A member of the RNA family "Small nucleolar RNA Z102/R77" from Brassica carinata, 91 nucleotides long. It scores 84 bits against the family's covariance model. Its Rfam clan is "SNORD44 clan". By type it is a C/D-box small nucleolar RNA. A reference for the family is Chen et al. (2003), "The high diversity of snoRNAs in plants: identification and comparative study of 120 snoRNA genes from Oryza sativa", Nucleic Acids Res.
RNA sequence: GAGAGAGAUGAUGAUUGAACUAUUUUUGUUCCCUAUUGGUUUGAUUCGCCGAGAUGAUGGCAUCUUACGUAUUAGCUCUAUCUGAUCUUUU
Numbered sequence: 001g002a003g004a005g006a007g008a009u010g011a012u013g014a015u016u017g018a019a020c021u022a023u024u025u026u027u028g029u030u031c032c033c034u035a036u037u038g039g040u041u042u043g044a045u046u047c048g049c050c051g052a053g054a055u056g057a058u059g060g061c062a063u064c065u066u067a068c069g070u071a072u073u074a075g076c077u078c079u080a081u082c083u084g085a086u087c088u089u090u091u
Base pairs, nucleotide, nucleotide: 002090003089004088005087043064048061049060050059